[Rfam]
RNA sequence: AGAAACAGAAGAGGAGCGUUAGCUAGGUAGUAAGUGCGAGGAAAACCAAUUCCUAAAACCACUUAUGAGGGAGAUUAGCGCCGAGGUAUGUCAAAUGGUUGGUUUCAUUUCAUAUCGGUCGAUUAGGCUGAAUCCUAACGAUUGUCACCUAUUCAUUGGUGGAGAGCUUCUGGUGAA
Numbered sequence: 001a002g003a004a005a006c007a008g009a010a011g012a013g014g015a016g017c018g019u020u021a022g023c024u025a026g027g028u029a030g031u032a033a034g035u036g037c038g039a040g041g042a043a044a045a046c047c048a049a050u051u052c053c054u055a056a057a058a059c060c061a062c063u064u065a066u067g068a069g070g071g072a073g074a075u076u077a078g079c080g081c082c083g084a085g086g087u088a089u090g091u092c093a094a095a096u097g098g099u100u101g102g103u104u105u106c107a108u109u110u111c112a113u114a115u116c117g118g119u120c121g122a123u124u125a126g127g128c129u130g131a132a133u134c135c136u137a138a139c140g141a142u143u144g145u146c147a148c149c150u151a152u153u154c155a156u157u158g159g160u161g162g163a164g165a166g167c168u169u170c171u172g173g174u175g176a177a
Base pairs, nucleotide, nucleotide: 006172007171008170009169010168011167016081017080018079019078020077021076022075024073030066031065032064033063034062035061036060085116086115087114088113089112090111093110094109095108096107097106098105117143118142119141120140123138124137125136126135127134145162146161147160148159149158151156

The family of this 177-nucleotide sequence from Shewanella sp. P1-14-1 is "Lysine riboswitch aptamer".
The base pairs follow the family's consensus structure, which is taken from published work.